Source information:
Rfam assigns this 80-nucleotide RNA sequence from Anolis carolinensis to the family "Small nucleolar RNA SNORD74". The family is grouped with related families in Rfam's "SNORD74 clan".
RNA sequence: CUCCCCUGCACAUGAUGAUAAAUGAUGUUGGUAGGGACAUCUGAGAAUAUGAUGAAUACCAACAUCUCUGAGCCAGGGGU
Number, nucleotide and partner (000 for none) at each position: 001c000002u079003c078004c077005c076006c000007u000008g000009c000010a000011c000012a000013u000014g000015a000016u000017g000018a000019u000020a000021a000022a000023u000024g000025a000026u000027g000028u000029u000030g000031g000032u000033a000034g000035g000036g000037a000038c000039a000040u000041c000042u000043g000044a000045g000046a000047a000048u000049a000050u000051g000052a000053u000054g000055a000056a000057u000058a000059c000060c000061a000062a000063c000064a000065u000066c000067u000068c000069u000070g000071a000072g000073c000074c000075a000076g005077g004078g003079g002080u000

The family's consensus secondary structure was predicted with PFOLD.